[Rfam]
RNA sequence: GAAAUUUGCUCCGCACAAUCGAAUACGAUGAAACAUUGUACGGAGC
Dot-bracket structure: ........(((((.(((...................))).))))).
Numbered sequence: 001g002a003a004a005u006u007u008g009c010u011c012c013g014c015a016c017a018a019u020c021g022a023a024u025a026c027g028a029u030g031a032a033a034c035a036u037u038g039u040a041c042g043g044a045g046c
Stems, first nucleotide, its partner, number of pairs: 009045005015039003

Shown here is a 46-nucleotide RNA sequence from Enterococcus avium, a member of the family "uup RNA".
The sequence is in the family's curated seed alignment.
By type it is a cis-regulatory element.